The family of this 94-nucleotide sequence from Berryella intestinalis is "Selenocysteine transfer RNA". The match comes from Rfam's covariance-model search (62 bits).
RNA sequence: GGAGAUGGACGGCCUCCUGGUGGAGCCCGCGGCCUUCAAAGCCGUUGUGAGGCGCGCAGAACGUCUUGGGUGUGUUCGAUUCGCACGCAUCUCC
Numbered sequence: 001g002g003a004g005a006u007g008g009a010c011g012g013c014c015u016c017c018u019g020g021u022g023g024a025g026c027c028c029g030c031g032g033c034c035u036u037c038a039a040a041g042c043c044g045u046u047g048u049g050a051g052g053c054g055c056g057c058a059g060a061a062c063g064u065c066u067u068g069g070g071u072g073u074g075u076u077c078g079a080u081u082c083g084c085a086c087g088c089a090u091c092u093c094c
Base pairs, nucleotide, nucleotide: 001094002093003092004091005090006089007088012027014025015024016023017022029045030044031043032042033041048068049067050066051065052064071085072084073083074082